[Rfam]
RNA sequence: CUCGUCCGCCACAUGGACGCCCUGCCCAUCCAAGCCCACUCCCGGUUACGCUGUCGCCGUGCGUCACUGUCCGGGCCCGCCCGGGGAAACCGCAUAGCCGACAGCCGUCGCAUCCAAGGGAGCCCCACAUG
Numbered sequence: 001c002u003c004g005u006c007c008g009c010c011a012c013a014u015g016g017a018c019g020c021c022c023u024g025c026c027c028a029u030c031c032a033a034g035c036c037c038a039c040u041c042c043c044g045g046u047u048a049c050g051c052u053g054u055c056g057c058c059g060u061g062c063g064u065c066a067c068u069g070u071c072c073g074g075g076c077c078c079g080c081c082c083g084g085g086g087a088a089a090c091c092g093c094a095u096a097g098c099c100g101a102c103a104g105c106c107g108u109c110g111c112a113u114c115c116a117a118g119g120g121a122g123c124c125c126c127a128c129a130u131g
Stems, first nucleotide, its partner, number of pairs: 060094004068088001070086002097111002100109003
The family of this 131-nucleotide sequence from Streptomyces fuscichromogenes is "Streptomyces-metH RNA". Pairs were carried over by alignment from the consensus structure, which is taken from published work. The family's RNA type in Rfam is small RNA.